[Rfam]
RNA sequence: GCUGGGGUCGGUGGCUCGACUCUGUAAUCCGGCGACUCGGAGGCCUGGGCUGUAGGAUGGCUUGAGGUGGGGAUCACUGCUGCAGGACUCCUCAUGGUGAUUGGGUGUCCGCACUAAGCUCGGCAUCAAUAUGGGCGUCCUUGGGGAGCCAGGGACGUCCAGGUUGACUAAGGAGGUGUGAACCGGGCCAGGGGGGAAACCCAGCAGCCAAAAGCACCCGUGUGGAGCAGUAGUGGGAUCACGCCCGAGAGUGGGCGGCCUGCAGUAGCCCUGCUAACAGAACCAGACUUAGCCCUUU
Numbered sequence: 001g002c003u004g005g006g007g008u009c010g011g012u013g014g015c016u017c018g019a020c021u022c023u024g025u026a027a028u029c030c031g032g033c034g035a036c037u038c039g040g041a042g043g044c045c046u047g048g049g050c051u052g053u054a055g056g057a058u059g060g061c062u063u064g065a066g067g068u069g070g071g072g073a074u075c076a077c078u079g080c081u082g083c084a085g086g087a088c089u090c091c092u093c094a095u096g097g098u099g100a101u102u103g104g105g106u107g108u109c110c111g112c113a114c115u116a117a118g119c120u121c122g123g124c125a126u127c128a129a130u131a132u133g134g135g136c137g138u139c140c141u142u143g144g145g146g147a148g149c150c151a152g153g154g155a156c157g158u159c160c161a162g163g164u165u166g167a168c169u170a171a172g173g174a175g176g177u178g179u180g181a182a183c184c185g186g187g188c189c190a191g192g193g194g195g196g197a198a199a200c201c202c203a204g205c206a207g208c209c210a211a212a213a214g215c216a217c218c219c220g221u222g223u224g225g226a227g228c229a230g231u232a233g234u235g236g237g238a239u240c241a242c243g244c245c246c247g248a249g250a251g252u253g254g255g256c257g258g259c260c261u262g263c264a265g266u267a268g269c270c271c272u273g274c275u276a277a278c279a280g281a282a283c284c285a286g287a288c289u290u291a292g293c294c295c296u297u298u
Base pairs, nucleotide, nucleotide: 001044002043003042004023005022006021007020008019009018010017011016028041029040030039047295048294049293050292051291052290058285059284060283062281063280066275067274068273069272070271071270072269077268078267079266080265081264082263083262084261085260086259088257091255092254093253094252095251101248102247103246104245105244106243107242108241109237110236112235113234114233115232116231118228119227120226121225123223124222125221126220127166128165129164130163132161133160134159135158136157137156138155139154140153141152142151143150144149168172175218176217177216178215179214186209187208188207193202194201195200
This 298-nucleotide sequence from Penaeus vannamei belongs to the Rfam family "Metazoan signal recognition particle RNA". It is annotated as a non-coding RNA gene. For this family Rfam cites "Towards the structure of the mammalian signal recognition particle" (Wild et al., Curr Opin Struct Biol, 2002).